[Rfam]
RNA sequence: UUAAGAGUUUUAUAAGAGCUUCGUAUAACCCCGGUAAUCGGUCCGGGGGUCUCUACCAGGUGACCGCAAAUCACCUGACUACGAAGCUUGGUUCUUCGUGG
Dot-bracket structure: .................((((((((...((((((........))))))........(((((((.......)))))))..))))))))..............
Numbered sequence: 001u002u003a004a005g006a007g008u009u010u011u012a013u014a015a016g017a018g019c020u021u022c023g024u025a026u027a028a029c030c031c032c033g034g035u036a037a038u039c040g041g042u043c044c045g046g047g048g049g050u051c052u053c054u055a056c057c058a059g060g061u062g063a064c065c066g067c068a069a070a071u072c073a074c075c076u077g078a079c080u081a082c083g084a085a086g087c088u089u090g091g092u093u094c095u096u097c098g099u100g101g
Stems, first nucleotide, its partner, number of pairs: 018087008029048006057077007